A member of the RNA family "L31-Gammaproteobacteria ribosomal protein leader" from Targowskia paracuniculus, 75 nucleotides long. Lineage of the source: Bacteria > Pseudomonadati > Pseudomonadota > Pasteurellaceae > Targowskia. On this family, see Eckert and Weinberg, BMC Microbiol 2020: "Discovery of 20 novel ribosomal leader candidates in bacteria and archaea".
RNA sequence: CAUAUGGUGCUUAUAUGCGGUGUGCAACCACAAAAUGCACAACAAAAUAAGUGGCGAUAUGGCUUCAUCAGAGGU
Dot-bracket structure: (((((.((..((((................................))))...)).)))))..............